[Rfam]
RNA sequence: GGCUAACCAGCAGCAGUUCUUCAGUGGCAAGCUUUAUGUUUAUGGAACAAGCUAAAGCUGCCAGUUGAAGAACUGUUGAGGCUGGC
Numbered sequence: 001g002g003c004u005a006a007c008c009a010g011c012a013g014c015a016g017u018u019c020u021u022c023a024g025u026g027g028c029a030a031g032c033u034u035u036a037u038g039u040u041u042a043u044g045g046a047a048c049a050a051g052c053u054a055a056a057g058c059u060g061c062c063a064g065u066u067g068a069a070g071a072a073c074u075g076u077u078g079a080g081g082c083u084g085g086c
Base pairs, nucleotide, nucleotide: 005083007081011078012077017072018071019070020069021068022067026062027061028060030059031058032057033056034055035054036053
Shown here is an 86-nucleotide RNA from Microcaecilia unicolor, a member of the family "mir-22 microRNA precursor family". It scores 86 bits against the family's covariance model. Its family is annotated with RISC complex and miRNA-mediated post-transcriptional gene silencing in the Gene Ontology. Lineage of the source: Eukaryota > Metazoa > Tetrapoda > Siphonopidae > Microcaecilia. The family's consensus secondary structure was predicted with RNAalifold.